[Rfam]
RNA sequence: CCGGCUUCCCUCGUCGCUGAGGCAGGACCGACUUCCCUCAUGGCCGAGGCAGGACCGGCUUCCCUCAUGGCCGAGGCAGACCCGG
Numbered sequence: 001c002c003g004g005c006u007u008c009c010c011u012c013g014u015c016g017c018u019g020a021g022g023c024a025g026g027a028c029c030g031a032c033u034u035c036c037c038u039c040a041u042g043g044c045c046g047a048g049g050c051a052g053g054a055c056c057g058g059c060u061u062c063c064c065u066c067a068u069g070g071c072c073g074a075g076g077c078a079g080a081c082c083c084g085g
Stems, first nucleotide, its partner, number of pairs: 001085004006080002009076005014070003018067005024061003028058003032053003036049004
The family of this 85-nucleotide RNA sequence from Canis lupus is "mir-8830 microRNA precursor family".
Taxonomically the source falls in Canis lupus (Eukaryota, Deuterostomia, Mammalia, Canis).
It is one of the family's seed sequences.